[Rfam]
Shown here is a 169-nucleotide RNA sequence from Lactococcus fujiensis, a member of the family "Lysine riboswitch aptamer". It scores 68 bits against the family's covariance model.

RNA sequence: UAAUAAAUUAGAGGUUGCAAAAAUUAAGAAGUCAAGUCGAGUGGUGAGCACGAAGAAACUUGAGGGCGGAAUUUUUUGCCGAAAGUCAAAAAUUCACAGCUUUUGACUUGGGACGUGUGGUUAAAUCCCUCGGACUGUCUUGGGUUAUCCAAGUUGCGCUAAUGUAUAA
Dot-bracket structure: ......(((((.....(((((((.(......((((((....................)))))).......).)))))))...(((((((((.(.....).)))))))))((..((.(.((.....)).).))..))..((((((...)))))).....)))))......

NCBI's taxonomy places the organism under Bacteria, Bacillati, Bacillota, Lactococcus, Lactococcus fujiensis. Gene Ontology term of the family: lysine biosynthetic process.